[Rfam]
RNA sequence: AAAUACACUGAGUGGCCGGAUUAUUAUGCUCUCUAGAUGCAUAAUAAUCCGGCCACUCAGUGUAUAA
Numbered sequence: 001a002a003a004u005a006c007a008c009u010g011a012g013u014g015g016c017c018g019g020a021u022u023a024u025u026a027u028g029c030u031c032u033c034u035a036g037a038u039g040c041a042u043a044a045u046a047a048u049c050c051g052g053c054c055a056c057u058c059a060g061u062g063u064a065u066a067a
Stems, first nucleotide, its partner, number of pairs: 004064014019049010
RNA: mir-9256 microRNA precursor family
Organism: Pipistrellus kuhlii